RAGATH-9 RNA: a 146-nucleotide RNA. A reference for the family is Weinberg et al. (2015), "New classes of self-cleaving ribozymes revealed by comparative genomics analysis", Nat Chem Biol.

[Rfam]
RNA sequence: CCAAUCGACACAGAAGGUUAUAACGCCAGACCCCUAAAGGUGAUUAAUACCUACGGACUAUACAACGGUCAACCUUAUUUAAGGUCAGGAGAAGGAAAAGGGCUAGCUAUCAAAUAAGGCGUACAAAUAGAUAGUAUAACUUUCUA
Numbered sequence: 001c002c003a004a005u006c007g008a009c010a011c012a013g014a015a016g017g018u019u020a021u022a023a024c025g026c027c028a029g030a031c032c033c034c035u036a037a038a039g040g041u042g043a044u045u046a047a048u049a050c051c052u053a054c055g056g057a058c059u060a061u062a063c064a065a066c067g068g069u070c071a072a073c074c075u076u077a078u079u080u081a082a083g084g085u086c087a088g089g090a091g092a093a094g095g096a097a098a099a100g101g102g103c104u105a106g107c108u109a110u111c112a113a114a115u116a117a118g119g120c121g122u123a124c125a126a127a128u129a130g131a132u133a134g135u136a137u138a139a140c141u142u143u144c145u146a
Base pairs, nucleotide, nucleotide: 012145013144014143015142016141017140018139019138020137025103026102027101038052039051040050041049042048056070057069058068059067072085073084074083075082076081106135107134108133109132110131111130